[Rfam]
RNA sequence: UGGAAAGAGAGGGAUUCAAACCCUCGGUAUGAAAUACUCAUACAAUGGAUUAG
Numbered sequence: 001u002g003g004a005a006a007g008a009g010a011g012g013g014a015u016u017c018a019a020a021c022c023c024u025c026g027g028u029a030u031g032a033a034a035u036a037c038u039c040a041u042a043c044a045a046u047g048g049a050u051u052a053g
Stems, first nucleotide, its partner, number of pairs: 009025005027043006